[Rfam]
RNA: transfer-messenger RNA
RNA sequence: UAUGGCUUCGACGGGGGUAAGAUGGGUUUGAUAAGCGAGCCGGGGGAAGCAUGGUCCCACGAGAUCAACUAUGCAAUAAAGAUAAACGCAGAAGAUAAUUUUGCAUUAGCUGCCUAGUUAGCAGCUCGUCAGCCUAAGCUUCCCGCAGCUUAGAAUCUGGCGCCGAUAGCGGGGAACCGAGCCUGCCAAAGCUUUGAGGUAGGAACGGAAUUUAUGAAGCUACUGAAGCAAGAAGCCUGUCUAUAGGCGUCUUGUAGAGGGAAUGUUAAACUAUAGACUGCGCUCGGAGAAAGUCAGGCUGGUCUGCUUUCGGACAGGGGUUCGAUUCG
Numbered sequence: 001u002a003u004g005g006c007u008u009c010g011a012c013g014g015g016g017g018u019a020a021g022a023u024g025g026g027u028u029u030g031a032u033a034a035g036c037g038a039g040c041c042g043g044g045g046g047a048a049g050c051a052u053g054g055u056c057c058c059a060c061g062a063g064a065u066c067a068a069c070u071a072u073g074c075a076a077u078a079a080a081g082a083u084a085a086a087c088g089c090a091g092a093a094g095a096u097a098a099u100u101u102u103g104c105a106u107u108a109g110c111u112g113c114c115u116a117g118u119u120a121g122c123a124g125c126u127c128g129u130c131a132g133c134c135u136a137a138g139c140u141u142c143c144c145g146c147a148g149c150u151u152a153g154a155a156u157c158u159g160g161c162g163c164c165g166a167u168a169g170c171g172g173g174g175a176a177c178c179g180a181g182c183c184u185g186c187c188a189a190a191g192c193u194u195u196g197a198g199g200u201a202g203g204a205a206c207g208g209a210a211u212u213u214a215u216g217a218a219g220c221u222a223c224u225g226a227a228g229c230a231a232g233a234a235g236c237c238u239g240u241c242u243a244u245a246g247g248c249g250u251c252u253u254g255u256a257g258a259g260g261g262a263a264u265g266u267u268a269a270a271c272u273a274u275a276g277a278c279u280g281c282g283c284u285c286g287g288a289g290a291a292a293g294u295c296a297g298g299c300u301g302g303u304c305u306g307c308u309u310u311c312g313g314a315c316a317g318g319g320g321u322u323c324g325a326u327u328c329g
Stems, first nucleotide, its partner, number of pairs: 012312008021303001023302001025300008036286005041061002044058002049074006108126006127162006134153007141174006178207002182203005190221006223260002228255005235248003239278004243272001320328001